[Rfam]
RNA sequence: AUCGUUCAUCUGUUUCUCGCAGACGGAAGUAAGAAGAAUUUAUCUUCUGAAGGAACGCGCC
Dot-bracket structure: ..(((((.(((((.....)))))..[.....((((((.....))))))....)))))]...